[Rfam]
RNA sequence: AAGGGUGGAACUGACGUCCCUGAGUGUAUGUGGUGAACCUGAAUUUGCCUUGGGUUUCCUCAUAUUCACUCAGGAGUGUCAGUUCCCCUG
Numbered sequence: 001a002a003g004g005g006u007g008g009a010a011c012u013g014a015c016g017u018c019c020c021u022g023a024g025u026g027u028a029u030g031u032g033g034u035g036a037a038c039c040u041g042a043a044u045u046u047g048c049c050u051u052g053g054g055u056u057u058c059c060u061c062a063u064a065u066u067c068a069c070u071c072a073g074g075a076g077u078g079u080c081a082g083u084u085c086c087c088c089u090g
Stems, first nucleotide, its partner, number of pairs: 002089004007084002011082006018076001019074008028065005033059001035057008
Shown here is a 90-nucleotide RNA sequence from Erinaceus europaeus, a member of the family "mir-670 microRNA precursor family".
It scores 100 bits against the family's covariance model.
Rfam 15.1 lists 117 matches to the family in 116 species.
Gene Ontology terms of the family: RISC complex, miRNA-mediated post-transcriptional gene silencing and cellular response to leukemia inhibitory factor.
The organism belongs to Erinaceus, within Eukaryota.